[Rfam]
RNA sequence: UAACCAUCGUCGCAAGGCGGUGCUGAACGGCAGAAGUCAGCAGAGGUCAUAGUACACAAAUGGGUACACAUUUGUGGAAGGAC
Dot-bracket structure: ((..(((((((....))))))).))...........((....)).(((......((((((..........))))))....)))
Numbered sequence: 001u002a003a004c005c006a007u008c009g010u011c012g013c014a015a016g017g018c019g020g021u022g023c024u025g026a027a028c029g030g031c032a033g034a035a036g037u038c039a040g041c042a043g044a045g046g047u048c049a050u051a052g053u054a055c056a057c058a059a060a061u062g063g064g065u066a067c068a069c070a071u072u073u074g075u076g077g078a079a080g081g082a083c
Stems, first nucleotide, its partner, number of pairs: 001025002005022007037044002046083003055076006

Rfam assigns this 83-nucleotide sequence from Ferroacidibacillus organovorans to the family "Group II catalytic intron D1-D4-1". Rfam 15.1 lists 2,508 matches to the family in 1,144 species. Group II introns are found in rRNA, tRNA and mRNA of organelles in fungi, plants and protists, and also in mRNA in bacteria.